The family of this 64-nucleotide RNA sequence from Panthera leo is "U7 small nuclear RNA". The organism belongs to Panthera, within Eukaryota. The match comes from Rfam's covariance-model search (53 bits). From the family's description: Animal histone pre-mRNAs are spliced by a different mechanism than nuclear pre-mRNAs and self-splicing introns.

Nucleotides: 064
Stems, first nucleotide, its partner, number of pairs: 034062002037059004042051003
Number, partner (000 for none) and nucleotide at each position: 001000u002000a003000g004000u005000g006000u007000u008000a009000u010000a011000g012000c013000u014000c015000u016000u017000u018000u019000a020000g021000g022000a023000u024000u025000u026000g027000u028000c029000u030000a031000g032000u033000a034062g035061g036000c037059u038058u039057u040056c041000c042051g043050g044049u045000c046000c047000u048000u049044a050043c051042c052000c053000g054000a055000a056040g057039g058038a059037a060000c061035c062034c063000c064000c